Shown here is a 436-nucleotide part of an RNA from Aegilops tauschii, a member of the family "Eukaryotic large subunit ribosomal RNA". It scores 3048 bits against the family's covariance model.
RNA sequence: GGUAGUAGCAAAUAUUCAAAUGAGAACUUUGAAGGCCGAAGAGGAGAAAAAGGUUCCAUGUGAACGGCACUUGCACAUGGGUAAGCCGAUCCUAAGGGACGGGGUAACCCCGGCAGAUAGCGCGAUCACGCGCAUCCCCCAAAAGGGAAUCGGGUUAAGAUUUCCCGAGCCGGGAUGUGGCGGUUGACGAUGACGUUAGGAAGUCCGGAGACGCCGGCGGGGGCCUUGGGAAGAGUUAUCUUUUCUGCUUAACGGCCUGCCAACCCUGGAAAUGGUUCAGCCGAAGGUAGGUUCCAGUGGCCGGAAGAGCACCGCACGCCGCACGGUGUCCGGUGCGCCCCCGGCGGCCCAUGAAAAUCUGGAGGACCGAGUACCGUUCACGCCCGGUCGUACUCAUAACCGCAUCAGGUCUCCAAGGUGAACAACCUCUGGCCAA
Number, nucleotide and partner (000 for none) at each position: 001g000002g000003u000004a000005g000006u000007a000008g000009c000010a000011a000012a000013u000014a000015u033016u032017c031018a030019a029020a028021u000022g000023a000024g000025a000026a000027c000028u020029u019030u018031g017032a016033a015034g434035g433036c432037c431038g000039a000040a000041g000042a000043g414044g413045a412046g411047a000048a000049a000050a000051a394052g393053g000054u000055u000056c080057c079058a078059u077060g076061u075062g000063a000064a000065c073066g072067g000068c000069a000070c000071u000072u066073g065074c000075a061076c060077a059078u058079g057080g056081g000082u000083a000084a000085g000086c000087c390088g389089a388090u000091c146092c145093u000094a000095a000096g140097g139098g114099a000100c112101g000102g111103g110104g109105u000106a000107a000108c000109c104110c103111c102112g100113g000114c098115a000116g000117a000118u000119a000120g133121c132122g131123c000124g000125a000126u000127c000128a000129c000130g000131c122132g121133c120134a000135u000136c000137c000138c000139c097140c096141a000142a000143a000144a000145g092146g091147g000148a000149a000150u168151c167152g166153g165154g164155u000156u000157a000158a000159g000160a000161u000162u000163u000164c154165c153166c152167g151168a150169g000170c000171c386172g385173g384174g383175a000176u382177g381178u380179g379180g378181c376182g375183g000184u000185u000186g197187a196188c195189g194190a000191u000192g000193a000194c189195g188196u187197u186198a000199g000200g000201a000202a000203g000204u363205c362206c361207g360208g359209a358210g000211a000212c000213g348214c347215c346216g345217g000218c343219g342220g341221g340222g339223g338224c337225c000226u333227u332228g331229g249230g248231a000232a246233g245234a244235g000236u000237u000238a000239u000240c000241u000242u000243u000244u234245c233246u232247g000248c230249u229250u000251a000252a000253c303254g302255g301256c300257c299258u000259g000260c000261c000262a000263a293264c000265c291266c290267u289268g288269g000270a000271a000272a000273u283274g282275g281276u000277u000278c000279a000280g000281c275282c274283g273284a000285a000286g000287g000288u268289a267290g266291g265292u000293u263294c000295c000296a000297g000298u000299g257300g256301c255302c254303g253304g000305a000306a000307g000308a000309g000310c328311a327312c326313c325314g324315c000316a000317c000318g000319c000320c000321g000322c000323a000324c314325g313326g312327u311328g310329u000330c000331c228332g227333g226334u000335g000336c000337g224338c223339c222340c221341c220342c219343g218344g000345c216346g215347g214348c213349c000350c000351a000352u000353g000354a000355a000356a000357a000358u209359c208360u207361g206362g205363a204364g000365g000366a000367c000368c000369g000370a000371g000372u000373a000374c000375c182376g181377u000378u180379c179380a178381c177382g176383c174384c173385c172386g171387g000388u089389c088390g087391u000392a000393c052394u051395c000396a000397u000398a000399a000400c409401c408402g000403c000404a000405u000406c000407a000408g401409g400410u000411c046412u045413c044414c043415a000416a428417g427418g426419u425420g000421a000422a000423c000424a000425a419426c418427c417428u416429c000430u000431g037432g036433c035434c034435a000436a000